[Rfam]
RNA sequence: UGAUGCUGCACGGGAGAGUCAGGCCCCGUGCCUGCGCCGAAGGGGCAAUCCCUCCCCGGAACCUCUCAGGCGCCAGGACCGUGCGGAGCAG
Numbered sequence: 001u002g003a004u005g006c007u008g009c010a011c012g013g014g015a016g017a018g019u020c021a022g023g024c025c026c027c028g029u030g031c032c033u034g035c036g037c038c039g040a041a042g043g044g045g046c047a048a049u050c051c052c053u054c055c056c057c058g059g060a061a062c063c064u065c066u067c068a069g070g071c072g073c074c075a076g077g078a079c080c081g082u083g084c085g086g087a088g089c090a091g
Stems, first nucleotide, its partner, number of pairs: 006086008020034004036071003039067002043065003049059002

Rfam assigns this 91-nucleotide sequence from Nocardioides kongjuensis to the family "Glycine riboswitch aptamer". The base pairs follow the family's consensus structure. The literature on the family includes a 2004 paper in Science by Mandal et al., "A glycine-dependent riboswitch that uses cooperative binding to control gene expression". Lineage of the source: Bacteria > Bacillati > Actinomycetota > Actinomycetes > Nocardioides.